Background: Shown here is a 131-nucleotide RNA sequence from Tetracentron sinense, a member of the family "Small nucleolar RNA snoR74". The literature on the family includes a 2002 paper in Curr Biol by Marker et al., "Experimental RNomics: identification of 140 candidates for small non-messenger RNAs in the plant Arabidopsis thaliana". A search with the family's covariance model found it, with a score of 107 bits. Its family is annotated with RNA processing and nucleolus in the Gene Ontology. The family's consensus secondary structure was predicted with WAR. The family has 9 seed sequences and 1,404 matches in Rfam 15.1.
RNA sequence: ACAAAAGCAGGGACCUGUGGCCUCUGUGAACCGGUCUCUCGUAAACUUCAGGGAAAUCACUUUCAUCGUUAUUGGGUGAACCUCUGUAGGUGUUGUUAGUGACAUAAGGUUCAGUAAAUGAUGCUACAUUA
Number, nucleotide and partner (000 for none) at each position: 001a000002c000003a000004a000005a048006a047007g046008c000009a000010g000011g037012g036013a000014c034015c033016u000017g031018u000019g000020g000021c000022c000023u000024c000025u000026g000027u000028g000029a000030a000031c017032c000033g015034g014035u000036c012037u011038c000039u000040c000041g000042u000043a000044a000045a000046c007047u006048u005049c000050a000051g000052g000053g000054a000055a000056a000057u000058c000059a000060c000061u000062u000063u000064c123065a122066u121067c120068g119069u118070u117071a000072u000073u000074g000075g000076g000077u113078g112079a111080a110081c109082c108083u107084c000085u000086g000087u000088a000089g000090g000091u000092g000093u000094u000095g000096u000097u000098a000099g000100u000101g000102a000103c000104a000105u000106a000107a083108g082109g081110u080111u079112c078113a077114g000115u000116a000117a070118a069119u068120g067121a066122u065123g064124c000125u000126a000127c000128a000129u000130u000131a000